[Rfam]
RNA: Trypanosomatid snoRNA TB10Cs3H2
RNA sequence: UGUGCGCUGCACCUUCCGGGCAGGAUGACGCCGUGACUGCGGUGGCGCUGUGUCCAAUCGGUGGUGCGAGAC
Numbered sequence: 001u002g003u004g005c006g007c008u009g010c011a012c013c014u015u016c017c018g019g020g021c022a023g024g025a026u027g028a029c030g031c032c033g034u035g036a037c038u039g040c041g042g043u044g045g046c047g048c049u050g051u052g053u054c055c056a057a058u059c060g061g062u063g064g065u066g067c068g069a070g071a072c
Stems, first nucleotide, its partner, number of pairs: 009067005016061002023055005029047004